RNA sequence: GGACGCACACGUGACUGGCGCGGACAAGGUGGACACGACCACCGGGGAGCGGAGCAGUCCGGACACCGCGCGCCUGGGUGACCGGG
Numbered sequence: 001g002g003a004c005g006c007a008c009a010c011g012u013g014a015c016u017g018g019c020g021c022g023g024a025c026a027a028g029g030u031g032g033a034c035a036c037g038a039c040c041a042c043c044g045g046g047g048a049g050c051g052g053a054g055c056a057g058u059c060c061g062g063a064c065a066c067c068g069c070g071c072g073c074c075u076g077g078g079u080g081a082c083c084g085g086g
Base pairs, nucleotide, nucleotide: 003058004057010051011050012049015046016045017074018073019072020071021070029042030041031040032039064080065079066078067077
RNA: ZMP/ZTP riboswitch aptamer (pfl RNA motif)